[Rfam]
Nucleotides: 134
Stems, first nucleotide, its partner, number of pairs: 007128002011124004016119004024112010
Number, partner (000 for none) and nucleotide at each position: 001000a002000u003000a004000c005000a006000c007128c008127c009000c010000a011124g012123a013122g014121g015000a016119g017118u018117g019116a020000u021000a022000c023000u024112g025111a026110g027109a028108a029107c030106a031105c032104a033103a034000g035000c036000u037000g038000u039000a040000a041000u042000u043000a044000g045000c046000u047000u048000u049000g050000c051000a052000a053000a054000u055000a056000u057000g058000g059000u060000g061000u062000u063000g064000c065000c066000a067000u068000u069000a070000c071000u072000a073000a074000u075000a076000u077000u078000a079000u080000g081000g082000u083000g084000g085000u086000c087000u088000g089000u090000g091000g092000c093000u094000a095000a096000u097000u098000a099000a100000c101000u102000c103033u104032u105031g106030u107029g108028u109027u110026c111025u112024c113000a114000g115000g116019u117018c118017a119016c120000c121014c122013c123012u124011u125000u126000g127008g128007g129000a130000a131000a132000u133000a134000u

Shown here is a 134-nucleotide RNA from Spinacia oleracea, a member of the family "MIR398 microRNA precursor family". For this family Rfam cites "Computational identification of plant microRNAs and their targets, including a stress-induced miRNA" (Jones-Rhoades and Bartel, Mol Cell, 2004). It scores 72 bits against the family's covariance model. Gene Ontology terms of the family: RISC complex and miRNA-mediated post-transcriptional gene silencing.